[Rfam]
RNA sequence: AGCAGUCCGCGGGCAACAUCAAGGCCGCGUGAGGAAUUGCCUCCGGUCCUUGACCACGGAUGUACUGGCACCGAUCGUCGAGGCAGUUUUGGGAAGGCCGGGGUAACCCGGCCUUUUUUCAU
Number, nucleotide and partner (000 for none) at each position: 001a030002g000003c000004a000005g000006u000007c000008c000009g028010c027011g026012g000013g000014c000015a000016a000017c000018a000019u000020c000021a000022a000023g000024g000025c000026c011027g010028c009029g000030u001031g000032a000033g000034g000035a000036a087037u086038u085039g084040c083041c082042u081043c000044c000045g076046g075047u074048c073049c000050u000051u070052g069053a000054c068055c067056a066057c000058g000059g000060a000061u000062g000063u000064a000065c000066u056067g055068g054069c052070a051071c000072c000073g048074a047075u046076c045077g000078u000079c000080g000081a042082g041083g040084c039085a038086g037087u036088u121089u000090u000091g118092g117093g116094a115095a114096g113097g112098c111099c110100g109101g108102g000103g000104u000105a000106a000107c000108c101109c100110g099111g098112c097113c096114u095115u094116u093117u092118u091119u000120c000121a088122u000